The family of this 187-nucleotide sequence from Oscillatoriaceae cyanobacterium M7585_C2015_266 is "Antisense RNA which regulates isiA expression". A search with the family's covariance model found it, with a score of 174 bits. Lineage of the source: Bacteria > Bacillati > Cyanobacteriota > Oscillatoriales > Oscillatoriaceae. On this family, see Duhring et al., Proc Natl Acad Sci U S A 2006: "An internal antisense RNA regulates expression of the photosynthesis gene isiA".
RNA sequence: GGUAGCCGAAAAUAACAGCGGGGUUAAGAGUGGGGUUUGUAAUCACCCGCACAUCACCGCCACCGGGAGCCCAGGUAUCGUAGACACCGCCAAAGAACAUGGCUUUGAAGACCAACAGCAAGGCACCCAAUCCCAAGAUAAUCAGGUGGUAGCCGAGGAUGUUAGUCAUUUGGUUUUUGUCUUUCCA
Numbered sequence: 001g002g003u004a005g006c007c008g009a010a011a012a013u014a015a016c017a018g019c020g021g022g023g024u025u026a027a028g029a030g031u032g033g034g035g036u037u038u039g040u041a042a043u044c045a046c047c048c049g050c051a052c053a054u055c056a057c058c059g060c061c062a063c064c065g066g067g068a069g070c071c072c073a074g075g076u077a078u079c080g081u082a083g084a085c086a087c088c089g090c091c092a093a094a095g096a097a098c099a100u101g102g103c104u105u106u107g108a109a110g111a112c113c114a115a116c117a118g119c120a121a122g123g124c125a126c127c128c129a130a131u132c133c134c135a136a137g138a139u140a141a142u143c144a145g146g147u148g149g150u151a152g153c154c155g156a157g158g159a160u161g162u163u164a165g166u167c168a169u170u171u172g173g174u175u176u177u178u179g180u181c182u183u184u185c186c187a
Base pairs, nucleotide, nucleotide: 145184146183148181149180150179155176156175157174